This 53-nucleotide sequence from Glycine max belongs to the Rfam family "Plastid-atpF group II-D1 intron".
RNA sequence: GAUUUUUUUUUCAAUAUAGAACACUCAUGUCAAUAAAAUUGCUUGAAUCCUAU
Numbered sequence: 001g002a003u004u005u006u007u008u009u010u011u012c013a014a015u016a017u018a019g020a021a022c023a024c025u026c027a028u029g030u031c032a033a034u035a036a037a038a039u040u041g042c043u044u045g046a047a048u049c050c051u052a053u
Stems, first nucleotide, its partner, number of pairs: 011033001014030004

Pairs were carried over by alignment from the consensus structure, which was predicted with LocARNA. On this family, see Richter et al., Plant Commun 2023: "Retrograde signaling in plants: A critical review focusing on the GUN pathway and beyond". About the family: Plastid atpF is a non-coding RNA (ncRNA) recognised in plastids. It has been reported in the intron group II-D1 region of ATP synthase (atpF) genes. Gene Ontology term of the family: Group II intron splicing.